The record is a 46-nucleotide sequence, which matches "L31-Actinobacteria ribosomal protein leader" in Rfam. A reference for the family is Eckert and Weinberg (2020), "Discovery of 20 novel ribosomal leader candidates in bacteria and archaea", BMC Microbiol. Rfam classes the family as a cis-regulatory leader.
RNA sequence: GCGGUACCGGUUCACGCUUUGCUGAUCAGCAGGCGACCCGGCGACC
Numbered sequence: 001g002c003g004g005u006a007c008c009g010g011u012u013c014a015c016g017c018u019u020u021g022c023u024g025a026u027c028a029g030c031a032g033g034c035g036a037c038c039c040g041g042c043g044a045c046c
Base pairs, nucleotide, nucleotide: 003046004045005044007041008040009039010038015035016034017033018032019031021030022029023028